The family of this 60-nucleotide sequence from Cupriavidus necator is "Betaproteobacteria toxic small RNA". Rfam's curators write: Overexpression in amino aid rich medium attenuates growth, suggesting role in repressing amino acid intake and metabolism. The family's consensus secondary structure was predicted with WAR. A search with the family's covariance model found it, with a score of 54 bits.
RNA sequence: UGUCUCCUCCACCACCUCGGUGGAUUCCAACCCACGCACAACCUGCGUGGGUUUUUUUUU
Numbered sequence: 001u002g003u004c005u006c007c008u009c010c011a012c013c014a015c016c017u018c019g020g021u022g023g024a025u026u027c028c029a030a031c032c033c034a035c036g037c038a039c040a041a042c043c044u045g046c047g048u049g050g051g052u053u054u055u056u057u058u059u060u
Stems, first nucleotide, its partner, number of pairs: 008024006029053008